radC RNA: a 137-nucleotide sequence from Brenneria goodwinii.

RNA sequence: UCCGUGUCACACUGCUGCUGCACGCAGCACUCCCAUGUUGCCACGACCUUCAAGGCAACGCGCAGGACCAACCUGUGUGGUCGACUCCCAACCCGCCUCGCUACCACUUUGCGGGUGAUCGCUGCGGCGAUAGUAGC
Numbered sequence: 001u002c003c004g005u006g007u008c009a010c011a012c013u014g015c016u017g018c019u020g021c022a023c024g025c026a027g028c029a030c031u032c033c034c035a036u037g038u039u040g041c042c043a044c045g046a047c048c049u050u051c052a053a054g055g056c057a058a059c060g061c062g063c064a065g066g067a068c069c070a071a072c073c074u075g076u077g078u079g080g081u082c083g084a085c086u087c088c089c090a091a092c093c094c095g096c097c098u099c100g101c102u103a104c105c106a107c108u109u110u111g112c113g114g115g116u117g118a119u120c121g122c123u124g125c126g127g128c129g130a131u132a133g134u135a136g137c
Stems, first nucleotide, its partner, number of pairs: 014028005037059006045082004060078007111137002118131005
Record summary
The source organism's lineage runs through Bacteria, Pseudomonadati, Pseudomonadota, Pectobacteriaceae and Brenneria. The family has 148 seed sequences and 500 matches in Rfam 15.1.